[Rfam]
RNA: SmY spliceosomal RNA
RNA sequence: UUAUUUCUAAAUAAUACUUCAGGGCCUUAACUAAGACCCGUCGUACAAUUUUUGGGCGCCCUUUCCUUCAUAGGACUGGGUG
Numbered sequence: 001u002u003a004u005u006u007c008u009a010a011a012u013a014a015u016a017c018u019u020c021a022g023g024g025c026c027u028u029a030a031c032u033a034a035g036a037c038c039c040g041u042c043g044u045a046c047a048a049u050u051u052u053u054g055g056g057c058g059c060c061c062u063u064u065c066c067u068u069c070a071u072a073g074g075a076c077u078g079g080g081u082g
Stems, first nucleotide, its partner, number of pairs: 022039003026035003058081004064075003
Dot-bracket structure: .....................(((.(((....))).)))..................((((..(((......)))..)))).